[Rfam]
RNA sequence: UCUGGGGUGACCCAGAAUCUGAAGGAAGUCGGCGGCAAAUCUCCGCCCCUAGGAACACGAACUUCAUAGAAGGCUAGAUGCAUUUGGAUGAGACUGCAAAACAAGUCAAAGUCCUUACUGCCAAAGGAUGCAUCGAGUAAAUGAAGAGGGGACAUGGAGAGGAAGAGCGUGUA
Numbered sequence: 001u002c003u004g005g006g007g008u009g010a011c012c013c014a015g016a017a018u019c020u021g022a023a024g025g026a027a028g029u030c031g032g033c034g035g036c037a038a039a040u041c042u043c044c045g046c047c048c049c050u051a052g053g054a055a056c057a058c059g060a061a062c063u064u065c066a067u068a069g070a071a072g073g074c075u076a077g078a079u080g081c082a083u084u085u086g087g088a089u090g091a092g093a094c095u096g097c098a099a100a101a102c103a104a105g106u107c108a109a110a111g112u113c114c115u116u117a118c119u120g121c122c123a124a125a126g127g128a129u130g131c132a133u134c135g136a137g138u139a140a141a142u143g144a145a146g147a148g149g150g151g152a153c154a155u156g157g158a159g160a161g162g163a164a165g166a167g168c169g170u171g172u173a
Stems, first nucleotide, its partner, number of pairs: 001016006030171002036165001040160006046151005062146006073138003077134007086114004092107004
The record is a 173-nucleotide sequence from Oceanobacillus sp. J11TS1, which matches "Group II catalytic intron D1-D4-3" in Rfam. The pairing is the family consensus, mapped onto this sequence. Lineage of the source: Bacteria > Bacillota > Caryophanales > Bacillaceae > Oceanobacillus.